[Rfam]
RNA sequence: GCCGCACAAAGGCACACCCGUACGAAAGUCGGGGUCGCAAAGCUUCCGGUCUGAGACCUCGUGCGCGAGGGGGUAUGGCAGCGGGGCCGCUGAU
Numbered sequence: 001g002c003c004g005c006a007c008a009a010a011g012g013c014a015c016a017c018c019c020g021u022a023c024g025a026a027a028g029u030c031g032g033g034g035u036c037g038c039a040a041a042g043c044u045u046c047c048g049g050u051c052u053g054a055g056a057c058c059u060c061g062u063g064c065g066c067g068a069g070g071g072g073g074u075a076u077g078g079c080a081g082c083g084g085g086g087c088c089g090c091u092g093a094u
Stems, first nucleotide, its partner, number of pairs: 012038002017033004022029002042087003046084003049079003057072003
RNA: c-di-GMP-I riboswitch aptamer
Organism: Acidovorax sp. CF316